A member of the RNA family "Rhizobiales sRNA Atu_C9" from Neorhizobium galegae, 201 nucleotides long. A reference for the family is Wilms et al. (2012), "Deep sequencing uncovers numerous small RNAs on all four replicons of the plant pathogen Agrobacterium tumefaciens", RNA Biol. The organism belongs to Neorhizobium galegae bv. orientalis, within Bacteria. The family's RNA type in Rfam is small RNA. The base pairs follow the family's consensus structure, which was predicted with WAR.
RNA sequence: CGUCAACGCAAGGAGGCAGACAUGGGACGUACAUACUCUCUCAAUGUCUUGGUAGUCGGUGCAGCGUUUGUGUUUGUGGCAUCCAUGCUCUUCAUUUGAGCGCCACCAGUUCCACUACCAGUUCAAAAUAUCGCAUCCACGACCGUUUGAUAAUCAGCACUUCCGGUGAAAACGCAUGCUCCUUUCGUAGGAGCAUGCGUU
Numbered sequence: 001c002g003u004c005a006a007c008g009c010a011a012g013g014a015g016g017c018a019g020a021c022a023u024g025g026g027a028c029g030u031a032c033a034u035a036c037u038c039u040c041u042c043a044a045u046g047u048c049u050u051g052g053u054a055g056u057c058g059g060u061g062c063a064g065c066g067u068u069u070g071u072g073u074u075u076g077u078g079g080c081a082u083c084c085a086u087g088c089u090c091u092u093c094a095u096u097u098g099a100g101c102g103c104c105a106c107c108a109g110u111u112c113c114a115c116u117a118c119c120a121g122u123u124c125a126a127a128a129u130a131u132c133g134c135a136u137c138c139a140c141g142a143c144c145g146u147u148u149g150a151u152a153a154u155c156a157g158c159a160c161u162u163c164c165g166g167u168g169a170a171a172a173c174g175c176a177u178g179c180u181c182c183u184u185u186c187g188u189a190g191g192a193g194c195a196u197g198c199g200u201u
Base pairs, nucleotide, nucleotide: 015048016047017046018045024040025039026038027037171201172200173199174198175197176196177195178194179193180192181191182190183189